Background: The record is a 122-nucleotide RNA from Fulvimonas soli, which matches "t44 RNA" in Rfam.

RNA sequence: UACAAACCCAACCAACGCCACACACGCAUCGGCACCGCCUUCGGGGUGCCGCGACGGGCCUUCCCCUCGAAACGAGGCGGGGCGCGGAGCGGUCGAAGCCGGGGAUGCGUGGAGGUCCCAAC
Numbered sequence: 001u002a003c004a005a006a007c008c009c010a011a012c013c014a015a016c017g018c019c020a021c022a023c024a025c026g027c028a029u030c031g032g033c034a035c036c037g038c039c040u041u042c043g044g045g046g047u048g049c050c051g052c053g054a055c056g057g058g059c060c061u062u063c064c065c066c067u068c069g070a071a072a073c074g075a076g077g078c079g080g081g082g083c084g085c086g087g088a089g090c091g092g093u094c095g096a097a098g099c100c101g102g103g104g105a106u107g108c109g110u111g112g113a114g115g116u117c118c119c120a121a122c
Stems, first nucleotide, its partner, number of pairs: 023111008035102003039098005048093005
By type it is a small RNA.